[Rfam]
RNA sequence: UGCUCAUCCAGAGGGGUGGAGGGACCGGCCCUGCGAAGCCCCGGCAACCAUCUCGGCGCGUGCGCUCGUAACCAGGCGAGGCGGCCGGGACAGGUGCCAACUCCGGCCUGGGGCCAGAUCGGUCGCCAGGAAAGAUGAGGG
Numbered sequence: 001u002g003c004u005c006a007u008c009c010a011g012a013g014g015g016g017u018g019g020a021g022g023g024a025c026c027g028g029c030c031c032u033g034c035g036a037a038g039c040c041c042c043g044g045c046a047a048c049c050a051u052c053u054c055g056g057c058g059c060g061u062g063c064g065c066u067c068g069u070a071a072c073c074a075g076g077c078g079a080g081g082c083g084g085c086c087g088g089g090a091c092a093g094g095u096g097c098c099a100a101c102u103c104c105g106g107c108c109u110g111g112g113g114c115c116a117g118a119u120c121g122g123u124c125g126c127c128a129g130g131a132a133a134g135a136u137g138a139g140g141g
Stems, first nucleotide, its partner, number of pairs: 001141001003139006013042005021031003025106004043098004048094002051089003102133001107130005
SAM riboswitch aptamer (S box leader): a 141-nucleotide RNA from Nocardiopsis composta. It scores 72 bits against the family's covariance model. The family's consensus secondary structure is taken from published work. Gene Ontology term of the family: regulation of gene expression. The organism belongs to Nocardiopsis, within Bacteria.